[Rfam]
RNA sequence: GCGAGACGCCCUGGUUCCAAGCGGGAGGGCGCCCGAUAAACUGUCCGCGGAACGACGCGGGGCGCAGCCCCCUGUUGGUCCACAAACGAUCAGCCAGCAGCCGCUGCAAACCCAGGGAG
Numbered sequence: 001g002c003g004a005g006a007c008g009c010c011c012u013g014g015u016u017c018c019a020a021g022c023g024g025g026a027g028g029g030c031g032c033c034c035g036a037u038a039a040a041c042u043g044u045c046c047g048c049g050g051a052a053c054g055a056c057g058c059g060g061g062g063c064g065c066a067g068c069c070c071c072c073u074g075u076u077g078g079u080c081c082a083c084a085a086a087c088g089a090u091c092a093g094c095c096a097g098c099a100g101c102c103g104c105u106g107c108a109a110a111c112c113c114a115g116g117g118a119g
Stems, first nucleotide, its partner, number of pairs: 049081003053077002059073004095106004